[Rfam]
RNA sequence: GGCGCGAUGGCGGAGUGGUUAACGCGAGAGACUAGAACUGACUAAAUUCCGACUAAUCUCUUCCCUUCGGGGGCGUAGGUUCGAAUCCUGCUCGCGUCG
Numbered sequence: 001g002g003c004g005c006g007a008u009g010g011c012g013g014a015g016u017g018g019u020u021a022a023c024g025c026g027a028g029a030g031a032c033u034a035g036a037a038c039u040g041a042c043u044a045a046a047u048u049c050c051g052a053c054u055a056a057u058c059u060c061u062u063c064c065c066u067u068c069g070g071g072g073g074c075g076u077a078g079g080u081u082c083g084a085a086u087c088c089u090g091c092u093c094g095c096g097u098c099g
Base pairs, nucleotide, nucleotide: 001098002097003096004095005094006093007092010025011024012023027061028060029059030058031057075091076090077089078088079087